The record is a 96-nucleotide RNA sequence from Microcebus murinus, which matches "Y RNA" in Rfam. It is annotated as a non-coding RNA gene. It scores 54 bits against the family's covariance model. NCBI's taxonomy places the organism under Eukaryota, Eumetazoa, Bilateria, Euteleostomi, Microcebus.
RNA sequence: GGUUGGUCUGAGUGCAGUGAUGUUUACAACUAAUUGAUCACAACCAGUUACAGAUUCCUGUGUUCUUCCUCCACUACUUCACUUGACCAGCCUAAA
Numbered sequence: 001g002g003u004u005g006g007u008c009u010g011a012g013u014g015c016a017g018u019g020a021u022g023u024u025u026a027c028a029a030c031u032a033a034u035u036g037a038u039c040a041c042a043a044c045c046a047g048u049u050a051c052a053g054a055u056u057c058c059u060g061u062g063u064u065c066u067u068c069c070u071c072c073a074c075u076a077c078u079u080c081a082c083u084u085g086a087c088c089a090g091c092c093u094a095a096a
Stems, first nucleotide, its partner, number of pairs: 001092008010084002014080001016075004028064003033059001